[Rfam]
RNA sequence: GGGAGUUCUUGGGUGAUGCACCCUGGAAUUGGGCUCCCUCCACUCUGGUUCCAGGUGUAUCACCUGAGAACCACU
Dot-bracket structure: .(..(((((((((((((.((((..(((((((((..........))))))))).)))).)))))))))))))..).
Numbered sequence: 001g002g003g004a005g006u007u008c009u010u011g012g013g014u015g016a017u018g019c020a021c022c023c024u025g026g027a028a029u030u031g032g033g034c035u036c037c038c039u040c041c042a043c044u045c046u047g048g049u050u051c052c053a054g055g056u057g058u059a060u061c062a063c064c065u066g067a068g069a070a071c072c073a074c075u
Stems, first nucleotide, its partner, number of pairs: 002074001005071013019057004025052009
A member of the RNA family "mir-9223 microRNA precursor family" from Myotis davidii, 75 nucleotides long. Pairs were carried over by alignment from the consensus structure, which was predicted with RNAalifold. The match comes from Rfam's covariance-model search (79 bits).